[Rfam]
RNA sequence: CCCCAAUGAAUCCUGUCAGGACCCCUUCUCGAUUCCUUACGGAGGUUUGUCUGUUACAACAUUGGGAGAAUAACCGCCAUGCUCGACGGCCGGCAGCGUUUUGCUGUUUGGCUAGAUUGGUAACCGUUCUGGUUACCGUCAUGAGAAGGCUCUGGGUCGAAUUGAGUUGAAGGCUCCUAUGUCCGCUUUGGACGAGUUUACAGGAGUCUUCGUAGUUAUGACUCACACAUCU
Dot-bracket structure: ..(((((...........((((.(((((............)))))...))))........)))))..........(((.(.(...(....(.(((((.....)))))..)..).....((((((((...)))))))).......)).)))..(((.(((........(((((.((((..(((((.....)))))........)))).)))))......))).))).......

The family of this 232-nucleotide RNA sequence from Cordyceps javanica is "Small nucleolar RNA snR191". The match comes from Rfam's covariance-model search (48 bits). By type it is an H/ACA-box small nucleolar RNA. The base pairs follow the family's consensus structure, which was predicted with WAR.